Overview:
This 103-nucleotide sequence from Brassica rapa belongs to the Rfam family "Small nucleolar RNA R64/Z200 family". Rfam links the family to the GO terms RNA processing and nucleolus. The sequence is in the family's curated seed alignment. On this family, see Galardi et al., Mol Cell Biol 2002: "Purified box C/D snoRNPs are able to reproduce site-specific 2'-O-methylation of target RNA in vitro". The family's RNA type in Rfam is C/D-box small nucleolar RNA.
Nucleotides: 103
Stems, first nucleotide, its partner, number of pairs: 001103007050069007
Number, partner (000 for none) and nucleotide at each position: 001103c002102u003101u004100g005099u006098g007097c008000u009000a010000u011000g012000a013000u014000g015000a016000u017000c018000u019000u020000u021000u022000g023000a024000a025000u026000a027000a028000a029000a030000u031000u032000c033000a034000c035000a036000u037000g038000u039000c040000a041000g042000a043000c044000u045000u046000c047000a048000g049000a050069g051068a052067u053066u054065c055064u056063u057000c058000u059000a060000a061000u062000u063056a064055a065054g066053a067052a068051u069050c070000c071000a072000u073000g074000a075000g076000a077000a078000u079000a080000a081000a082000u083000a084000u085000u086000c087000a088000u089000a090000a091000u092000u093000c094000u095000g096000a097007g098006c099005a100004c101003a102002a103001g